DUF805b RNA: a 36-nucleotide RNA sequence from Sphingobacterium sp. ML3W. Pairs were carried over by alignment from the consensus structure, which is taken from published work. The family's RNA type in Rfam is cis-regulatory element.
[Rfam]
Nucleotides: 036
Stems, first nucleotide, its partner, number of pairs: 002021004010035003
Number, partner (000 for none) and nucleotide at each position: 001000a002021a003020g004019g005018g006000c007000g008000a009000a010035g011034c012033u013000g014000a015000a016000a017000a018005c019004c020003c021002u022000g023000u024000a025000a026000a027000c028000g029000a030000g031000u032000a033012a034011g035010c036000a